RNA sequence: UAUUUGAGAUGAUGCCAAUCAUCUUUCAGGAUUGACCUGAAAUGAAGAGAUUAAUCAUCACUGAUCACUA
Numbered sequence: 001u002a003u004u005u006g007a008g009a010u011g012a013u014g015c016c017a018a019u020c021a022u023c024u025u026u027c028a029g030g031a032u033u034g035a036c037c038u039g040a041a042a043u044g045a046a047g048a049g050a051u052u053a054a055u056c057a058u059c060a061c062u063g064a065u066c067a068c069u070a
Stems, first nucleotide, its partner, number of pairs: 001070002005067003

Rfam assigns this 70-nucleotide RNA from Otolemur garnettii to the family "Small nucleolar RNA SNORD2". Rfam links the family to the GO terms RNA processing and nucleolus. For this family Rfam cites "Identification of a novel box C/D snoRNA from mouse nucleolar cDNA library" (Zhou et al., Gene, 2004). NCBI's taxonomy places the organism under Eukaryota, Gnathostomata, Tetrapoda, Mammalia, Otolemur. The family's consensus secondary structure was predicted with WAR.